[Rfam]
RNA sequence: UUCUGUAAAUAGCAAAACAUAUUAAAGUAUGUGACGCAAAGCUAUAGGGUCUAAGGCUUAAAAAGCUAGGAUAGCCAGCUACCAGA
Numbered sequence: 001u002u003c004u005g006u007a008a009a010u011a012g013c014a015a016a017a018c019a020u021a022u023u024a025a026a027g028u029a030u031g032u033g034a035c036g037c038a039a040a041g042c043u044a045u046a047g048g049g050u051c052u053a054a055g056g057c058u059u060a061a062a063a064a065g066c067u068a069g070g071a072u073a074g075c076c077a078g079c080u081a082c083c084a085g086a
Stems, first nucleotide, its partner, number of pairs: 012037002017032006040080004047076002049072003056066004

Rfam assigns this 86-nucleotide RNA sequence from Clostridium sp. 'deep sea' to the family "c-di-GMP-I riboswitch aptamer". Rfam links the family to the GO term cyclic-di-GMP binding. Rfam describes the family as follows. GEMM was predicted in a large-scale screen for bacterial structured RNA regulatory elements.